[Rfam]
The record is a 121-nucleotide RNA from Streptomyces smaragdinus, which matches "Streptomyces-metH RNA" in Rfam. The organism belongs to Streptomyces, within Bacteria. Pairs were carried over by alignment from the consensus structure, which is taken from published work. Rfam classes the family as a small RNA.
RNA sequence: CCCGUCCGGCUCCUGGACACUCCGGGUGCUUCGCCGCCCCGGAGGCUAGGCUGGCCGAGUGCGCCGCUCACGCGAGCACGCAUAGCCGACAGCCGUCGCAUCCGAGGGAGCUCCUCCAAUG
Numbered sequence: 001c002c003c004g005u006c007c008g009g010c011u012c013c014u015g016g017a018c019a020c021u022c023c024g025g026g027u028g029c030u031u032c033g034c035c036g037c038c039c040c041g042g043a044g045g046c047u048a049g050g051c052u053g054g055c056c057g058a059g060u061g062c063g064c065c066g067c068u069c070a071c072g073c074g075a076g077c078a079c080g081c082a083u084a085g086c087c088g089a090c091a092g093c094c095g096u097c098g099c100a101u102c103c104g105a106g107g108g109a110g111c112u113c114c115u116c117c118a119a120u121g
Base pairs, nucleotide, nucleotide: 060082061081062080063079066077067076068075069074085099086098088097089096090095